[Rfam]
RNA sequence: UGUCCUCGGCUCAGACAAGGUUACCCGCUGGAUUUAAGCAUAUUAUUAAGCGGAGGAAAAGAAACUAACAAGGAUCCCUCAGUAAUGGCGAAUGAAGCGGGGCAGAGUCCAAGCCUGGAACCGGUGGCAACAGCGGAUUGUGGCUUUGAGGCUGGCGUUGCUGAGCGGCACGUGACCACCCCGGCACAAGUUCUUUGGAACAAGACAUCAGAGAGGGUGAGAAUCCCGUGGAUGGGCGGGGAGGAGUGGCGAUCAGGGGCCAGGCAAGCGAGUCGAGUUGUUUGGGAGUACAGCUCAAAGGCGGUGGUAAGGAGCAUCGAAGACUAAUAUGAGCGAGAGACCGAUAGCGGACAAGUACUGUGAAGGAAAGAUGAAAAGGACCCUGAAAGAGAGUUAAAGGACUUGAAAUUGUUGAAGGGAAG
Numbered sequence: 001u002g003u004c005c006u007c008g009g010c011u012c013a014g015a016c017a018a019g020g021u022u023a024c025c026c027g028c029u030g031g032a033u034u035u036a037a038g039c040a041u042a043u044u045a046u047u048a049a050g051c052g053g054a055g056g057a058a059a060a061g062a063a064a065c066u067a068a069c070a071a072g073g074a075u076c077c078c079u080c081a082g083u084a085a086u087g088g089c090g091a092a093u094g095a096a097g098c099g100g101g102g103c104a105g106a107g108u109c110c111a112a113g114c115c116u117g118g119a120a121c122c123g124g125u126g127g128c129a130a131c132a133g134c135g136g137a138u139u140g141u142g143g144c145u146u147u148g149a150g151g152c153u154g155g156c157g158u159u160g161c162u163g164a165g166c167g168g169c170a171c172g173u174g175a176c177c178a179c180c181c182c183g184g185c186a187c188a189a190g191u192u193c194u195u196u197g198g199a200a201c202a203a204g205a206c207a208u209c210a211g212a213g214a215g216g217g218u219g220a221g222a223a224u225c226c227c228g229u230g231g232a233u234g235g236g237c238g239g240g241g242a243g244g245a246g247u248g249g250c251g252a253u254c255a256g257g258g259g260c261c262a263g264g265c266a267a268g269c270g271a272g273u274c275g276a277g278u279u280g281u282u283u284g285g286g287a288g289u290a291c292a293g294c295u296c297a298a299a300g301g302c303g304g305u306g307g308u309a310a311g312g313a314g315c316a317u318c319g320a321a322g323a324c325u326a327a328u329a330u331g332a333g334c335g336a337g338a339g340a341c342c343g344a345u346a347g348c349g350g351a352c353a354a355g356u357a358c359u360g361u362g363a364a365g366g367a368a369a370g371a372u373g374a375a376a377a378g379g380a381c382c383c384u385g386a387a388a389g390a391g392a393g394u395u396a397a398a399g400g401a402c403u404u405g406a407a408a409u410u411g412u413u414g415a416a417g418g419g420a421a422g
Base pairs, nucleotide, nucleotide: 024055025053026052027051028050029049035042036041065072066071076101077100078099085093086092106325107324108323109322112145113144114143115142118139119138121136122135123134125132126131151265152263153262154261155260158258159257172250173249175247176246177244180240181239182238183237185235190206192205193204194203195202209213216226217225275296276295277294278293279292280291281290302319303318304317305316306315358365359364381391383389384388